[Rfam]
RNA sequence: CUGCGCCGCCGGAAUCAUUCCGGCGGUGCAGCAUCCAACGAACCACCGCCCACAAAGCGGUGGUUCUGAUUUGAAAAUAUAUAGAUGACCAGCAGGGGCAUCCGGGCUGGUACCCGGGCUACCGGCGGUAACCGCAACGGCUUUGACGAACUCCCGACGGAGAACUCGCAAGCCGCUCGGCUUCAUGCCAGGUGGUGUCCCCUUACCGAGGGUGACCA
Numbered sequence: 001c002u003g004c005g006c007c008g009c010c011g012g013a014a015u016c017a018u019u020c021c022g023g024c025g026g027u028g029c030a031g032c033a034u035c036c037a038a039c040g041a042a043c044c045a046c047c048g049c050c051c052a053c054a055a056a057g058c059g060g061u062g063g064u065u066c067u068g069a070u071u072u073g074a075a076a077a078u079a080u081a082u083a084g085a086u087g088a089c090c091a092g093c094a095g096g097g098g099c100a101u102c103c104g105g106g107c108u109g110g111u112a113c114c115c116g117g118g119c120u121a122c123c124g125g126c127g128g129u130a131a132c133c134g135c136a137a138c139g140g141c142u143u144u145g146a147c148g149a150a151c152u153c154c155c156g157a158c159g160g161a162g163a164a165c166u167c168g169c170a171a172g173c174c175g176c177u178c179g180g181c182u183u184c185a186u187g188c189c190a191g192g193u194g195g196u197g198u199c200c201c202c203u204u205a206c207c208g209a210g211g212g213u214g215a216c217c218a
Base pairs, nucleotide, nucleotide: 001031002030003029004028005027006026007025008024009023010022011021012020013019041065042064043063044062045061046060048058049057094203095202096201097200098199099197100196101118102117103116104115105114106113119195120194121193122192123191125188126187127186130183132180133179138175139174140173141172142170144168145167146166151162152161153160154159

The record is a 218-nucleotide sequence from Pseudomonas jinjuensis, which matches "sucA-II RNA" in Rfam. The organism belongs to Pseudomonas, within Bacteria. The family's consensus secondary structure is taken from published work. The match comes from Rfam's covariance-model search (140 bits).